Molybdenum/Tungsten riboswitch aptamer (Moco RNA motif): a 144-nucleotide RNA sequence from Gibbsiella quercinecans.
RNA sequence: UUGAAAUCAAAACUCCUAGCCCUUGGGCCUGUGUUGUUCCCAUCGAACAAUAUGGCGUUUGGGCCGUGGCGAAGCCUGCCACCAGGGUGCCAGUGGAAACGCCGGCAUCUCCCGUAUUUGGAAAGGUGUUAUGGUGCCGCAACU
Number, nucleotide and partner (000 for none) at each position: 001u000002u000003g138004a000005a000006a135007u000008c000009a000010a000011a130012a129013c128014u000015c126016c125017u000018a000019g064020c063021c062022c061023u000024u000025g058026g000027g056028c055029c054030u000031g000032u000033g051034u050035u049036g048037u047038u046039c045040c000041c000042a000043u000044c000045g039046a038047a037048c036049a035050a034051u033052a000053u000054g029055g028056c027057g000058u025059u000060u000061g022062g021063g020064c019065c000066g082067u081068g080069g079070c078071g000072a000073a000074g000075c000076c000077u000078g070079c069080c068081a067082c066083c000084a000085g110086g109087g108088u107089g106090c105091c104092a000093g102094u101095g100096g000097a000098a000099a000100c095101g094102c093103c000104g091105g090106c089107a088108u087109c086110u085111c121112c120113c000114g000115u000116a000117u000118u000119u000120g112121g111122a000123a000124a000125g016126g015127u000128g013129u012130u011131a000132u000133g000134g000135u006136g000137c000138c003139g000140c000141a000142a000143c000144u000
Description: Lineage of the source: Bacteria > Pseudomonadati > Pseudomonadota > Gammaproteobacteria > Gibbsiella.